[Rfam]
RNA sequence: GCAUCGGUGGUUCAGUGGUAGAAUGCUCGCCUGCCACGCGGGCGGCCCGGGUUCGAUUCCCGACCGAUGCA
Dot-bracket structure: (((((((..((((.......)))).(((((.......))))).....((((.......)))).))))))).
Numbered sequence: 001g002c003a004u005c006g007g008u009g010g011u012u013c014a015g016u017g018g019u020a021g022a023a024u025g026c027u028c029g030c031c032u033g034c035c036a037c038g039c040g041g042g043c044g045g046c047c048c049g050g051g052u053u054c055g056a057u058u059c060c061c062g063a064c065c066g067a068u069g070c071a
Stems, first nucleotide, its partner, number of pairs: 001070007010024004026042005048062004